Rfam assigns this 102-nucleotide RNA from Paraliobacillus sp. PM-2 to the family "Purine riboswitch aptamer". The source organism's lineage runs through Bacteria, Bacillati, Bacilli, Bacillaceae and Paraliobacillus. Riboswitches are metabolite binding domains within certain messenger RNAs that serve as precision sensors for their corresponding targets. A search with the family's covariance model found it, with a score of 78 bits.
[Rfam]
RNA sequence: AAUAUAUAAUAAAACUACCUCGAUAUAAUCUCGAUAAUAUGGUUCGGGAGUUUCUAACGAGAUACCGUGAAUUUCUCGACUAUGGAGGCAGAUUUACUCUUU
Numbered sequence: 001a002a003u004a005u006a007u008a009a010u011a012a013a014a015c016u017a018c019c020u021c022g023a024u025a026u027a028a029u030c031u032c033g034a035u036a037a038u039a040u041g042g043u044u045c046g047g048g049a050g051u052u053u054c055u056a057a058c059g060a061g062a063u064a065c066c067g068u069g070a071a072u073u074u075c076u077c078g079a080c081u082a083u084g085g086a087g088g089c090a091g092a093u094u095u096a097c098u099c100u101u102u
Base pairs, nucleotide, nucleotide: 018088019087020086021085023083024082025081029049030048031047032046033045034044058078059077060076061075062074064072